A member of the RNA family "MIR2655 microRNA precursor family" from Trifolium subterraneum, 252 nucleotides long.
RNA sequence: CCUUUAUCUUUUAAAAGUUUUAAGUUGGUCCCUUAUCUUUAUUUUAGGUUUCAAGUUGGUCCCUUCCGUCAAUUUUUUAACUAUUUCCGUUAAAUUUGGACAUGUGGCAAACUAAUUUGGACACGUGGUACACUUGGACAGAUGACACGUGUCCAAUUUUAACAGUAACGGUAAAAAAAUUGACGGAAGGGACCAAUUUGAAACAUAAAAUAAAGAUAAGGGAUCAACUUGAAACUUUUAAAUGAUAAGGGA
Numbered sequence: 001c002c003u004u005u006a007u008c009u010u011u012u013a014a015a016a017g018u019u020u021u022a023a024g025u026u027g028g029u030c031c032c033u034u035a036u037c038u039u040u041a042u043u044u045u046a047g048g049u050u051u052c053a054a055g056u057u058g059g060u061c062c063c064u065u066c067c068g069u070c071a072a073u074u075u076u077u078u079a080a081c082u083a084u085u086u087c088c089g090u091u092a093a094a095u096u097u098g099g100a101c102a103u104g105u106g107g108c109a110a111a112c113u114a115a116u117u118u119g120g121a122c123a124c125g126u127g128g129u130a131c132a133c134u135u136g137g138a139c140a141g142a143u144g145a146c147a148c149g150u151g152u153c154c155a156a157u158u159u160u161a162a163c164a165g166u167a168a169c170g171g172u173a174a175a176a177a178a179a180u181u182g183a184c185g186g187a188a189g190g191g192a193c194c195a196a197u198u199u200g201a202a203a204c205a206u207a208a209a210a211u212a213a214a215g216a217u218a219a220g221g222g223a224u225c226a227a228c229u230u231g232a233a234a235c236u237u238u239u240a241a242a243u244g245a246u247a248a249g250g251g252a
Stems, first nucleotide, its partner, number of pairs: 002250007023229003027225003031221013045207002